[Rfam]
RNA sequence: UGUAUCGCUGAUGAUAUUGUGGCUCCCUCUACUGAACUCUUAUGUGGAAGCCUGCCAUUGUUACCCAAUUUCUGUCUGAGAUGUG
Number, nucleotide and partner (000 for none) at each position: 001u085002g084003u083004a082005u081006c080007g000008c000009u000010g000011a000012u000013g000014a000015u000016a000017u000018u000019g000020u000021g000022g000023c000024u000025c000026c000027c000028u000029c000030u000031a000032c000033u000034g000035a000036a000037c000038u000039c000040u000041u000042a000043u000044g000045u000046g000047g000048a000049a000050g000051c000052c000053u000054g000055c000056c000057a000058u000059u000060g000061u000062u000063a000064c000065c000066c000067a000068a000069u000070u000071u000072c000073u000074g000075u000076c000077u000078g000079a000080g006081a005082u004083g003084u002085g001
Shown here is an 85-nucleotide RNA sequence from Perca flavescens, a member of the family "Small nucleolar RNA SNORD100". The base pairs follow the family's consensus structure, which was predicted with RNAalifold. A reference for the family is Galardi et al. (2002), "Purified box C/D snoRNPs are able to reproduce site-specific 2'-O-methylation of target RNA in vitro", Mol Cell Biol. Taxonomically the source falls in Perca (Eukaryota, Opisthokonta, Metazoa, Neoteleostei). Its Rfam clan is "SNORD100 clan". Rfam links the family to the GO terms nucleolus and RNA processing.